[Rfam]
RNA: Plastid-rps12 3UTR RNA
Organism: Bongardia chrysogonum
RNA sequence: GGUUUUCAUUGGUGCAAAUCCAAUCACAGAUGAUAAAGCAAUUACCCUUUGGUAGCAAAUGGUUACCCAUUAAGCGGGGAAUUUAGUAUU
Numbered sequence: 001g002g003u004u005u006u007c008a009u010u011g012g013u014g015c016a017a018a019u020c021c022a023a024u025c026a027c028a029g030a031u032g033a034u035a036a037a038g039c040a041a042u043u044a045c046c047c048u049u050u051g052g053u054a055g056c057a058a059a060u061g062g063u064u065a066c067c068c069a070u071u072a073a074g075c076g077g078g079g080a081a082u083u084u085a086g087u088a089u090u
Stems, first nucleotide, its partner, number of pairs: 009023004045078003049069001051067006